[Rfam]
RNA sequence: GCGUGUUACGGCCCUUUUAGAAUUUGUCUAGCAGGUUUUCCCAUCCUUACCAGAAGACCCCA
Numbered sequence: 001g002c003g004u005g006u007u008a009c010g011g012c013c014c015u016u017u018u019a020g021a022a023u024u025u026g027u028c029u030a031g032c033a034g035g036u037u038u039u040c041c042c043a044u045c046c047u048u049a050c051c052a053g054a055a056g057a058c059c060c061c062a
Stems, first nucleotide, its partner, number of pairs: 034059007044049001
RNA: U7 small nuclear RNA